[Rfam]
RNA sequence: CCCCGGUGGAGACCGGAAACCACUUGAAUCAACGGGGCGGAACCCGAACAGCCAAACGAGUAGGGACAAGA
Number, nucleotide and partner (000 for none) at each position: 001c000002c000003c000004c000005g000006g023007u022008g021009g020010a000011g000012a000013c000014c000015g000016g000017a000018a000019a000020c009021c008022a007023c006024u000025u000026g000027a000028a000029u000030c000031a000032a000033c000034g000035g000036g053037g052038c051039g000040g000041a000042a000043c065044c064045c000046g000047a000048a000049c000050a000051g038052c037053c036054a000055a000056a000057c000058g000059a000060g000061u000062a000063g000064g044065g043066a000067c000068a000069a000070g000071a000
RNA: DUF805 RNA